[Rfam]
Shown here is a 193-nucleotide RNA sequence, a member of the family "6S / SsrS RNA". Rfam classes the family as a non-coding RNA gene.
RNA sequence: UAAAGGCUGCAUUGUUCGUAUAAUAUUAAGUUUUAACCUUUAAGCUGUAAAAGGGAGUUUUAUUAUUGGAGUUGGAAUGACGGGCCUCACACUACUGUGCAUGAGGAUAAGCAGGAAAACUUCUGCGAACACCCACUUUGAGGAGUGGUGGUUUAAAACUUUCUAUAAUAACUACGGCAUACGCGGCUUUUUA
Numbered sequence: 001u002a003a004a005g006g007c008u009g010c011a012u013u014g015u016u017c018g019u020a021u022a023a024u025a026u027u028a029a030g031u032u033u034u035a036a037c038c039u040u041u042a043a044g045c046u047g048u049a050a051a052a053g054g055g056a057g058u059u060u061u062a063u064u065a066u067u068g069g070a071g072u073u074g075g076a077a078u079g080a081c082g083g084g085c086c087u088c089a090c091a092c093u094a095c096u097g098u099g100c101a102u103g104a105g106g107a108u109a110a111g112c113a114g115g116a117a118a119a120c121u122u123c124u125g126c127g128a129a130c131a132c133c134c135a136c137u138u139u140g141a142g143g144a145g146u147g148g149u150g151g152u153u154u155a156a157a158a159c160u161u162u163c164u165a166u167a168a169u170a171a172c173u174a175c176g177g178c179a180u181a182c183g184c185g186g187c188u189u190u191u192u193a
Base pairs, nucleotide, nucleotide: 002191003190004189005188006187007186008185009184010183013179014178015177017176018175019174029160030159031158032157034155035154036153037151038150053134054133055132057130058129059128060127068123069122070121071120072119073118079112085106086105087104088103089102